[Rfam]
RNA: Streptomyces RNA 3202
RNA sequence: CCAAGUCCCAACGCACUCCCCCCGAGCGGCGGGACCUUCCCCGAGCCGGACUCCGGCGCCUCACCCCCCCUUGGCGCCGGGGUCCGGCUCCAUA
Numbered sequence: 001c002c003a004a005g006u007c008c009c010a011a012c013g014c015a016c017u018c019c020c021c022c023c024g025a026g027c028g029g030c031g032g033g034a035c036c037u038u039c040c041c042c043g044a045g046c047c048g049g050a051c052u053c054c055g056g057c058g059c060c061u062c063a064c065c066c067c068c069c070c071u072u073g074g075c076g077c078c079g080g081g082g083u084c085c086g087g088c089u090c091c092a093u094a
Base pairs, nucleotide, nucleotide: 005035006034007033008032009031012028013027014026043090044089045088046087047086048085049084050083051082052081054079055078056077057076058075059074060073